[Rfam]
RNA sequence: UUACCGGCGGUCUCUAAUUCGCUUGGUGCAGGUCGGGAACCGGUUCGCCGGGGAGGCAGGAACCUCUCCCGCCGCCGCCGCAUCCGAUUGAGGGGGGCGGAUUCGAUUCCCGCCUUGCAUCAACUGAAUCGGAGACCGCGGUGAAG
Numbered sequence: 001u002u003a004c005c006g007g008c009g010g011u012c013u014c015u016a017a018u019u020c021g022c023u024u025g026g027u028g029c030a031g032g033u034c035g036g037g038a039a040c041c042g043g044u045u046c047g048c049c050g051g052g053g054a055g056g057c058a059g060g061a062a063c064c065u066c067u068c069c070c071g072c073c074g075c076c077g078c079c080g081c082a083u084c085c086g087a088u089u090g091a092g093g094g095g096g097g098c099g100g101a102u103u104c105g106a107u108u109c110c111c112g113c114c115u116u117g118c119a120u121c122a123a124c125u126g127a128a129u130c131g132g133a134g135a136c137c138g139c140g141g142u143g144a145a146g
Stems, first nucleotide, its partner, number of pairs: 013133002017129004023123010034112005040105001
Background
Shown here is a 146-nucleotide RNA from Corymbia citriodora, a member of the family "MIR168 microRNA precursor family". Lineage of the source: Eukaryota > Magnoliopsida > malvids > Eucalypteae > Corymbia citriodora. Rfam 15.1 lists 518 matches to the family in 218 species.